ssnA RNA: a 49-nucleotide RNA. The family's RNA type in Rfam is cis-regulatory element. The family's consensus secondary structure is taken from published work. Rfam's curators put it in the seed alignment.
RNA sequence: AAAAUGAUAGCUGGAACGAAGUGCUGUUGCGCACGGGCUGACACCUAUC
Dot-bracket structure: .......(((((........((((......)))).))))).........